[Rfam]
The record is a 115-nucleotide RNA, which matches "DUF3577 RNA" in Rfam. The family's RNA type in Rfam is cis-regulatory element.
RNA sequence: CGAUUGGAUAGUGCAGGAAACUGCAUGAAACUCGUCUGCAAUCCCGGCAUCGCUGUUCGCUCCGUUUUGGACGGGCAGCGUGGCGACUUCAAUUCUGCCUUCGGGCAGCUUCAAC
Numbered sequence: 001c002g003a004u005u006g007g008a009u010a011g012u013g014c015a016g017g018a019a020a021c022u023g024c025a026u027g028a029a030a031c032u033c034g035u036c037u038g039c040a041a042u043c044c045c046g047g048c049a050u051c052g053c054u055g056u057u058c059g060c061u062c063c064g065u066u067u068u069g070g071a072c073g074g075g076c077a078g079c080g081u082g083g084c085g086a087c088u089u090c091a092a093u094u095c096u097g098c099c100u101u102c103g104g105g106c107a108g109c110u111u112c113a114a115c
Base pairs, nucleotide, nucleotide: 011026012025013024014023015022016021032086033085034084035083036082051080052079053078054077055076056075057074058073059072095108096107097106098105